The record is a 45-nucleotide RNA sequence from Klebsiella pneumoniae, which matches "Guanidine-II riboswitch aptamer (mini-ykkC)" in Rfam. It scores 43 bits against the family's covariance model.

RNA sequence: CUUACGGGACGACCCGUAAGCGUUUCUCAUCCGGGGACGGCCCCA
Dot-bracket structure: ((((((((....))))))))............((((....)))).
Pairs were carried over by alignment from the consensus structure, which is taken from published work. The source organism's lineage runs through Bacteria, Pseudomonadota, Enterobacterales, Klebsiella and Klebsiella pneumoniae subsp. pneumoniae. Rfam's curators write: Simpler in structure and has fewer highly conserved nucleotide positions than the ykkC-yxkD leader.